HNH endonuclease-associated RNA and ORF (HEARO) RNA: a 224-nucleotide RNA from Aerosakkonema funiforme. Rfam 15.1 lists 952 matches to the family in 249 species. The source organism's lineage runs through Bacteria, Oscillatoriophycideae, Aerosakkonemataceae, Aerosakkonema and Aerosakkonema funiforme.
[Rfam]
RNA sequence: GUCAACUACCCACACUGACCUAACGGUACAGUGUGGGCUUGCGGGAAAUCGUAAGCCCUGUUGACCAGCCUAAGUUCUUGUUAAGAACUACGUUAUUCGGGUCACGACACCUUUAAAUGCUUGCCAGUUUAAAGCUCUGUCGUCUGGAGUUAAACAAGUCAUAGGGAAAAGCUAGUGCUUCAGACAAGAGCAAGCCCGAAUAACAUUGGCGAGGCAAACCUAAC
Numbered sequence: 001g002u003c004a005a006c007u008a009c010c011c012a013c014a015c016u017g018a019c020c021u022a023a024c025g026g027u028a029c030a031g032u033g034u035g036g037g038c039u040u041g042c043g044g045g046a047a048a049u050c051g052u053a054a055g056c057c058c059u060g061u062u063g064a065c066c067a068g069c070c071u072a073a074g075u076u077c078u079u080g081u082u083a084a085g086a087a088c089u090a091c092g093u094u095a096u097u098c099g100g101g102u103c104a105c106g107a108c109a110c111c112u113u114u115a116a117a118u119g120c121u122u123g124c125c126a127g128u129u130u131a132a133a134g135c136u137c138u139g140u141c142g143u144c145u146g147g148a149g150u151u152a153a154a155c156a157a158g159u160c161a162u163a164g165g166g167a168a169a170a171g172c173u174a175g176u177g178c179u180u181c182a183g184a185c186a187a188g189a190g191c192a193a194g195c196c197c198g199a200a201u202a203a204c205a206u207u208g209g210c211g212a213g214g215c216a217a218a219c220c221u222a223a224c
Stems, first nucleotide, its partner, number of pairs: 001065006010037002012034002019026002038055007068210003072206001073089005092204011107140002111134008119220001121218002123215003142185009154176002157173003162167001